[Rfam]
Rfam assigns this 80-nucleotide RNA from Gallus gallus to the family "Small nucleolar RNA U2-19". The source organism's lineage runs through Eukaryota, Bilateria, Craniata, Sauria and Gallus. For this family Rfam cites "Guide RNAs with 5' Caps and Novel Box C/D snoRNA-like Domains for Modification of snRNAs in Metazoa" (Tycowski et al., Curr Biol, 2004).
RNA sequence: AGUCUGGGAUGAGAAACAGCCAAAUCUGAACACCAGAAGAUAAAACUAUCUUCCAGGUAUAGCAGUAUGCAGUUCUGAGA
Dot-bracket structure: .............................(.(((...((((......))))....))).)....................